Notes
Rfam assigns this 114-nucleotide RNA from Oryzias latipes to the family "Potassium channel RNA editing signal". Gene Ontology term of the family: adenosine to inosine editing. Pairs were carried over by alignment from the consensus structure, which is taken from published work. NCBI's taxonomy places the organism under Eukaryota, Euteleostomi, Clupeocephala, Euacanthomorphacea, Oryzias. Rfam 15.1 lists 14,095 matches to the family in 1,000 species.
[Rfam]
RNA sequence: GUAGGUUAUGGAGAUAUUUACCCCAAAACUCUUCUGGGUAAAAUAGUUGGGGGCUUAUGUUGCAUUGCAGGAGUGUUGGUAAUAGCUUUGCCCAUCCCAAUCAUUGUAAAUAAC
Numbered sequence: 001g002u003a004g005g006u007u008a009u010g011g012a013g014a015u016a017u018u019u020a021c022c023c024c025a026a027a028a029c030u031c032u033u034c035u036g037g038g039u040a041a042a043a044u045a046g047u048u049g050g051g052g053g054c055u056u057a058u059g060u061u062g063c064a065u066u067g068c069a070g071g072a073g074u075g076u077u078g079g080u081a082a083u084a085g086c087u088u089u090g091c092c093c094a095u096c097c098c099a100a101u102c103a104u105u106g107u108a109a110a111u112a113a114c
Base pairs, nucleotide, nucleotide: 001114002113004111007108008107009106010105011104013102014101015100020095037077038076039075040074049063051061
Rfam describes the family as follows. This family represents a group of sequences related to the human potassium channel Kv1.1 hairpin element which directs the efficient modification of an adenosine to inosine by an adenosine deaminase acting on RNA (ADAR). It scores 79 bits against the family's covariance model.